[Rfam]
RNA sequence: GGUCAGCAGAUUAGACCUAAAACAGUCGCUUCGCCGGUGGGCGGUUACACACCUAAAAAUAACCUA
Numbered sequence: 001g002g003u004c005a006g007c008a009g010a011u012u013a014g015a016c017c018u019a020a021a022a023c024a025g026u027c028g029c030u031u032c033g034c035c036g037g038u039g040g041g042c043g044g045u046u047a048c049a050c051a052c053c054u055a056a057a058a059a060u061a062a063c064c065u066a
Stems, first nucleotide, its partner, number of pairs: 001017004009027004036053004
RNA: GP20-b RNA